[Rfam]
RNA sequence: CGCGCAGCAGGACGGAAAGACCCCGGGACCUUCACUGCAGCUUGACAUUGGUGUUUGGGGCGGCUUGUGUAGGAUAGGUGGGAGACGGUGAAGCGGUGACGCUAGUCAUUGUGGAGUCAUUGGUGAAAUACCACUCUGGUCGUUUUGGAUGUCUAACCCGCGCCCGUGGAUCCGGGUGGGGGACAGUGUCUGGUGGGUAGUUUAACUGGGGCGGUUGCCUCCUAAAGGGUAACGGAGGCGCCCAAAGGUUCCCUCAGCCUGGUUGGUAAUCAGGUGGUGAGUGUAAGUGCACAAGGGGGCUUGACUGUGAGACUGACGGGUCGAGCAGGAGCGAAAGCUGGGACUAGUGAUCCGGCGCCGGCGUGUGGAAGCGGUGUCGCUCAACGGCUAAAAGGUACCCCGGGGAUAACAGGCUGAUCUUCCCCAAGAGUCCAUAUCGACGGGAUGGUUUGGCACCUCGAUGUCGGCUCGUCGCAUCCUGGGGCUGGAGUAGGUCCCAAGGGUUGGGCUGUUCGCCCAUUAAAGCGGUACGCGAGCUGGGUUUAGAACGUCGCGAGACAGUUCGGUCCCUAUCCGCUGCGCGCGCA
Dot-bracket structure: ((((((((.(((.((......(((((((((((.((((...((.((((..((((((((((((((((.(.........(((((..(((......((((((((....))))))))...)))............)))))).))))))))))))))))...(((.((((((......))))))))).....)))).))....))))..((((.....))))((((((...........))))))(.((....((((((((.((((((.......))))))...))((......))....))))))....((((..(((......)))..)))).(((....))).))..........(((((((.((........))))))))).....)......)))))..))))))........(((.(((.((((...((.......))...)))).))..))))..........(((((((((((..((.((((((......))))))...)).(((((.....))))).....)))))..)..)))).).....(((((((....))).))))....))..)))))))))))....
The record is a 587-nucleotide part of an RNA from Sphaerimonospora thailandensis, which matches "Bacterial large subunit ribosomal RNA" in Rfam. Lineage of the source: Bacteria > Bacillati > Streptosporangiales > Streptosporangiaceae > Sphaerimonospora.